[Rfam]
RNA: Actinobacteria sRNA Ms_IGR-5
RNA sequence: ACUUCGGAAGGGAGGUGGUUCGGCAGAUGUAUGAAUACCGGACGGAAGAGGUGGCUGCGGGCUAGUGGCCCGCCGUCGUACUCGGUUCGGCGCCGGACCAGCACGUGAGUUGAGCGUGCAGCCGGCCUAAUCCAACGCAGUCACCCGACCCGCAGGCUCGCCGGUACGUCCGGCCGGCUUCUCGCCGUGAGGCGAGGACCAGAGCCUGCGGGUCGUCUGCG
Numbered sequence: 001a002c003u004u005c006g007g008a009a010g011g012g013a014g015g016u017g018g019u020u021c022g023g024c025a026g027a028u029g030u031a032u033g034a035a036u037a038c039c040g041g042a043c044g045g046a047a048g049a050g051g052u053g054g055c056u057g058c059g060g061g062c063u064a065g066u067g068g069c070c071c072g073c074c075g076u077c078g079u080a081c082u083c084g085g086u087u088c089g090g091c092g093c094c095g096g097a098c099c100a101g102c103a104c105g106u107g108a109g110u111u112g113a114g115c116g117u118g119c120a121g122c123c124g125g126c127c128u129a130a131u132c133c134a135a136c137g138c139a140g141u142c143a144c145c146c147g148a149c150c151c152g153c154a155g156g157c158u159c160g161c162c163g164g165u166a167c168g169u170c171c172g173g174c175c176g177g178c179u180u181c182u183c184g185c186c187g188u189g190a191g192g193c194g195a196g197g198a199c200c201a202g203a204g205c206c207u208g209c210g211g212g213u214c215g216u217c218u219g220c221g
Stems, first nucleotide, its partner, number of pairs: 015058005060127004065122002068119002071116003146215013160178006